[Rfam]
RNA sequence: GGCCUGUGGGGGGUCCCUCUGGGCACCGCAGCACUGUGCUGAGCGUGCUGCAGCUGCCCGGGAGUGACUUCAUGCAGUCC
Numbered sequence: 001g002g003c004c005u006g007u008g009g010g011g012g013g014u015c016c017c018u019c020u021g022g023g024c025a026c027c028g029c030a031g032c033a034c035u036g037u038g039c040u041g042a043g044c045g046u047g048c049u050g051c052a053g054c055u056g057c058c059c060g061g062g063a064g065u066g067a068c069u070u071c072a073u074g075c076a077g078u079c080c
Stems, first nucleotide, its partner, number of pairs: 001080002004077005010071006017064003020060006026053001028051006035043001
RNA: mir-1301 microRNA precursor family